[Rfam]
This 72-nucleotide sequence from Alligator mississippiensis belongs to the Rfam family "Mammalian CPEB3 ribozyme". A search with the family's covariance model found it, with a score of 49 bits.
RNA sequence: ACUGCCGUCACGGCUAUAGCAGGAGUGCUCAUGUCACGGCCAUCAGAUUCUAACGAAUCUGCAAAUUCUGCU
Number, nucleotide and partner (000 for none) at each position: 001a000002c000003u000004g000005c000006c000007g000008u000009c000010a043011c000012g041013g040014c039015u038016a000017u000018a072019g071020c070021a069022g068023g067024a066025g037026u036027g035028c000029u000030c000031a000032u000033g000034u000035c027036a026037c025038g015039g014040c013041c012042a000043u010044c061045a060046g059047a058048u057049u056050c055051u000052a000053a000054c000055g050056a049057a048058u047059c046060u045061g044062c000063a000064a000065a000066u024067u023068c022069u021070g020071c019072u018